[Rfam]
RNA sequence: GCUAAGCACUUACAACUAUUUGCAGAGGAAACUGAGACUUUGUAACUACAUCUCAGUCUCACCUGCAAAGAAGUAAAUGCUUUGC
Numbered sequence: 001g002c003u004a005a006g007c008a009c010u011u012a013c014a015a016c017u018a019u020u021u022g023c024a025g026a027g028g029a030a031a032c033u034g035a036g037a038c039u040u041u042g043u044a045a046c047u048a049c050a051u052c053u054c055a056g057u058c059u060c061a062c063c064u065g066c067a068a069a070g071a072a073g074u075a076a077a078u079g080c081u082u083u084g085c
Stems, first nucleotide, its partner, number of pairs: 001085002004082005010076004017071001019069007028060002031057007041050003
Shown here is an 85-nucleotide RNA from Gulo gulo, a member of the family "mir-452 microRNA precursor family".
The source organism's lineage runs through Eukaryota, Opisthokonta, Eumetazoa, Mustelidae and Gulo.
Gene Ontology terms of the family: RISC complex and miRNA-mediated post-transcriptional gene silencing.
On this family, see Jima et al., Blood 2010: "Deep sequencing of the small RNA transcriptome of normal and malignant human B cells identifies hundreds of novel microRNAs".